Rfam assigns this 94-nucleotide sequence from Roseivivax isoporae to the family "Rhodo-rpoB RNA". Taxonomically the source falls in Roseivivax isoporae (Bacteria, Pseudomonadati, Rhodobacterales, Roseivivax). A search with the family's covariance model found it, with a score of 73 bits.
RNA sequence: CGAUCGGGAGGCCACCCUUGGGACGGUGGUCAGGCAUAGAUCGGAACCUGCCCCUCGCGGAUGGAUGCGCGGCCGGAGCCCGACGGCGCGCGCU
Numbered sequence: 001c002g003a004u005c006g007g008g009a010g011g012c013c014a015c016c017c018u019u020g021g022g023a024c025g026g027u028g029g030u031c032a033g034g035c036a037u038a039g040a041u042c043g044g045a046a047c048c049u050g051c052c053c054c055u056c057g058c059g060g061a062u063g064g065a066u067g068c069g070c071g072g073c074c075g076g077a078g079c080c081c082g083a084c085g086g087c088g089c090g091c092g093c094u
Stems, first nucleotide, its partner, number of pairs: 001043005010031007067093004072087004